A member of the RNA family "Rhizobiales sRNA Atu_At1" from Paradevosia tibetensis, 108 nucleotides long. The source organism's lineage runs through Bacteria, Pseudomonadota, Alphaproteobacteria, Hyphomicrobiales and Paradevosia. The family has 33 seed sequences and 200 matches in Rfam 15.1. The family's consensus secondary structure was predicted with CMfinder. A search with the family's covariance model found it, with a score of 111 bits.

[Rfam]
RNA sequence: AGGCGGCGCGCGUCAACCGGCCGCGGCGGAGAAGAGGAACAGGACAAUUUUGCCGGUUUCCUGUCCUGGCCAACGAAUAGGCAGACGAGCCUCUGACCCGCCCGCGCC
Numbered sequence: 001a002g003g004c005g006g007c008g009c010g011c012g013u014c015a016a017c018c019g020g021c022c023g024c025g026g027c028g029g030a031g032a033a034g035a036g037g038a039a040c041a042g043g044a045c046a047a048u049u050u051u052g053c054c055g056g057u058u059u060c061c062u063g064u065c066c067u068g069g070c071c072a073a074c075g076a077a078u079a080g081g082c083a084g085a086c087g088a089g090c091c092u093c094u095g096a097c098c099c100g101c102c103c104g105c106g107c108c
Base pairs, nucleotide, nucleotide: 006107007106008105009104011023012022014020025102026101027100028099029098034093035092036091037090040068041067042066043065044064045063046062069082070081071080